[Rfam]
SAH (S-adenosyl-L-homocysteine) riboswitch aptamer: an 81-nucleotide sequence from Sutterella sp. CAG:521. NCBI's taxonomy places the organism under Bacteria, Pseudomonadati, Betaproteobacteria, Burkholderiales, Sutterella. Rfam 15.1 lists 1,354 matches to the family in 1,132 species.
RNA sequence: UUUCUCAAGGAGCGCUGCGAGACUUUCUCCUUUAUUGAAAGCUCCCAGGCUUGAGAUAAAUCUUAACGGCGCUCACCACAC
Numbered sequence: 001u002u003u004c005u006c007a008a009g010g011a012g013c014g015c016u017g018c019g020a021g022a023c024u025u026u027c028u029c030c031u032u033u034a035u036u037g038a039a040a041g042c043u044c045c046c047a048g049g050c051u052u053g054a055g056a057u058a059a060a061u062c063u064u065a066a067c068g069g070c071g072c073u074c075a076c077c078a079c080a081c
Base pairs, nucleotide, nucleotide: 003056004055005054006053007052008051021044022043024041025040026039
It scores 47 bits against the family's covariance model.